[Rfam]
RNA sequence: CCUCCGCCCUCCCCGCACAGGAGGGCGGACCGAGGCACUCGGCGCUCUCUGCCCUGACCGCGCCGGUGCCUCCCGUGGCCGACGGCACCGCACACCGCCGGCCGAGCAGCUCCGGGCUGCGGCGCCUCGGCGGGCUGAGGGUCCUUCCCCGGCGC
Numbered sequence: 001c002c003u004c005c006g007c008c009c010u011c012c013c014c015g016c017a018c019a020g021g022a023g024g025g026c027g028g029a030c031c032g033a034g035g036c037a038c039u040c041g042g043c044g045c046u047c048u049c050u051g052c053c054c055u056g057a058c059c060g061c062g063c064c065g066g067u068g069c070c071u072c073c074c075g076u077g078g079c080c081g082a083c084g085g086c087a088c089c090g091c092a093c094a095c096c097g098c099c100g101g102c103c104g105a106g107c108a109g110c111u112c113c114g115g116g117c118u119g120c121g122g123c124g125c126c127u128c129g130g131c132g133g134g135c136u137g138a139g140g141g142u143c144c145u146u147c148c149c150c151g152g153c154g155c
Base pairs, nucleotide, nucleotide: 003029004028005027006026008024009023010022011021012020032072033071034070035069036068038066040065041064042063044061045060046057047056076104077103078102079101080100081099085096109123110122111121113119114118129148130147132145133144134143
Dot-bracket structure: ..((((.(((((.......))))).))))..(((((.(.(((.((((........))..)).)))).)))))...((((((...(..........)..))))))....(((.((...)).))).....((.(((........))).)).......